[Rfam]
RNA sequence: AGAGUCCUGAUGUGUUUGUGGUAAACCCUAUGUUUUGACCUAACAUACUACCUUCGGGAGUUUGCGUUUCCUCGUGAAGUAAAUGCCUAUUUAGUAGGACUUACAACCACUCGGAACAGAACACCCACCUGCUGAGUGCGGGUUCAAAACGAAGGAUAAACGAGCGACGGCACAAUUGGGACUCUU
Numbered sequence: 001a002g003a004g005u006c007c008u009g010a011u012g013u014g015u016u017u018g019u020g021g022u023a024a025a026c027c028c029u030a031u032g033u034u035u036u037g038a039c040c041u042a043a044c045a046u047a048c049u050a051c052c053u054u055c056g057g058g059a060g061u062u063u064g065c066g067u068u069u070c071c072u073c074g075u076g077a078a079g080u081a082a083a084u085g086c087c088u089a090u091u092u093a094g095u096a097g098g099a100c101u102u103a104c105a106a107c108c109a110c111u112c113g114g115a116a117c118a119g120a121a122c123a124c125c126c127a128c129c130u131g132c133u134g135a136g137u138g139c140g141g142g143u144u145c146a147a148a149a150c151g152a153a154g155g156a157u158a159a160a161c162g163a164g165c166g167a168c169g170g171c172a173c174a175a176u177u178g179g180g181a182c183u184c185u186u
Base pairs, nucleotide, nucleotide: 002184003183004182005181006180007179008178009177010176011175012173013172014171015170017169018168019167031151032150033149034148036146037145038144039142040141056126057125058124060122061121062120063119067116069115070114071113074110075109081102082101086098087097088096089095